Rfam assigns this 143-nucleotide RNA sequence from Mesorhizobium sp. YM1C-6-2 to the family "Alphaproteobacterial sRNA ar7". The match comes from Rfam's covariance-model search (112 bits).
[Rfam]
RNA sequence: CAUCGGCGUUUUUGCCGAAGUCCGGAGUAUGGCCCGUCCCCCGCCUAGACCGGACACAAUGCGGCAGCCUCAUCCCCCUCUCCGGGCUGCUGCGAUUUGUAGUAAGGCCGCCGUGGUUGUCCCCUCCGCCACGGCGGCAUUUU
Numbered sequence: 001c002a003u004c005g006g007c008g009u010u011u012u013u014g015c016c017g018a019a020g021u022c023c024g025g026a027g028u029a030u031g032g033c034c035c036g037u038c039c040c041c042c043g044c045c046u047a048g049a050c051c052g053g054a055c056a057c058a059a060u061g062c063g064g065c066a067g068c069c070u071c072a073u074c075c076c077c078c079u080c081u082c083c084g085g086g087c088u089g090c091u092g093c094g095a096u097u098u099g100u101a102g103u104a105a106g107g108c109c110g111c112c113g114u115g116g117u118u119g120u121c122c123c124c125u126c127c128g129c130c131a132c133g134g135c136g137g138c139a140u141u142u143u
Base pairs, nucleotide, nucleotide: 021054022053023052024051025050031045032044033043061093062092063091064090065089066088067087068086069085108137109136110135111134112133113132114131115130116129117128119127
Pairs were carried over by alignment from the consensus structure.